[Rfam]
RNA sequence: UGGUGGCUCCAACCGGGACUAAAGGUCCCUAUAACGACUCUGCGCCAAAGCCGUUGUGGCAGGGGACCUUUAGUCCCGGUUGGAGCCACCAA
Numbered sequence: 001u002g003g004u005g006g007c008u009c010c011a012a013c014c015g016g017g018a019c020u021a022a023a024g025g026u027c028c029c030u031a032u033a034a035c036g037a038c039u040c041u042g043c044g045c046c047a048a049a050g051c052c053g054u055u056g057u058g059g060c061a062g063g064g065g066a067c068c069u070u071u072a073g074u075c076c077c078g079g080u081u082g083g084a085g086c087c088a089c090c091a092a
Base pairs, nucleotide, nucleotide: 003089004088005087006086007085008084009083010082011081012080013079014078015077016076017075018074019073020072021071022070023069024068025067026066027065029063030058031057032056034054035053041047042046

About this RNA:
The record is a 92-nucleotide sequence from Miscanthus lutarioriparius, which matches "MIR5387 microRNA precursor family" in Rfam. Lineage of the source: Eukaryota > Streptophytina > Euphyllophyta > Andropogoneae > Miscanthus. Gene Ontology terms of the family: miRNA-mediated post-transcriptional gene silencing and RISC complex.